[Rfam]
RNA: mir-181 microRNA precursor family
Organism: Tetraodon nigroviridis
RNA sequence: GGUCUUUGGGGAACAUUCAACGCUGUCGGUGAGUUUGGUGACUCAGAAAAAAACCAUCGAGCGUUGAGUGUACCUUUAGG
Numbered sequence: 001g002g003u004c005u006u007u008g009g010g011g012a013a014c015a016u017u018c019a020a021c022g023c024u025g026u027c028g029g030u031g032a033g034u035u036u037g038g039u040g041a042c043u044c045a046g047a048a049a050a051a052a053a054c055c056a057u058c059g060a061g062c063g064u065u066g067a068g069u070g071u072a073c074c075u076u077u078a079g080g
Base pairs, nucleotide, nucleotide: 004080005079006078008076014070015069016068017067018066019065020064021063022062026060027059028058029057030056031055033054034053035052036051